The family of this 54-nucleotide sequence is "DUF3800-XI RNA". The family's RNA type in Rfam is small RNA. From the family's description: Actinobacteria, Firmicutes, Proteobacteria, Spirochaetes (1 example). The family's consensus secondary structure is taken from published work.
RNA sequence: UGGGCUGGUCGAAAGGCCCAGAUCCAAUCAAAAGAACAGGCGGGGAAAUUCCCC
Numbered sequence: 001u002g003g004g005c006u007g008g009u010c011g012a013a014a015g016g017c018c019c020a021g022a023u024c025c026a027a028u029c030a031a032a033a034g035a036a037c038a039g040g041c042g043g044g045g046a047a048a049u050u051c052c053c054c
Stems, first nucleotide, its partner, number of pairs: 001026004006021001007018004